[Rfam]
A member of the RNA family "c-di-GMP-I riboswitch aptamer" from Virgibacillus salinus, 88 nucleotides long.
RNA sequence: UGUACGAAAUGGCAAAAUCAUUGAAAAAUGAUGACGCAAAGCUACAGGGACUAAGUUGGAUAUUCCAAUAAGUCAGCCAGCUUUCGAA
Numbered sequence: 001u002g003u004a005c006g007a008a009a010u011g012g013c014a015a016a017a018u019c020a021u022u023g024a025a026a027a028a029u030g031a032u033g034a035c036g037c038a039a040a041g042c043u044a045c046a047g048g049g050a051c052u053a054a055g056u057u058g059g060a061u062a063u064u065c066c067a068a069u070a071a072g073u074c075a076g077c078c079a080g081c082u083u084u085c086g087a088a
Stems, first nucleotide, its partner, number of pairs: 012037002017032006040082004047078002049074003056068004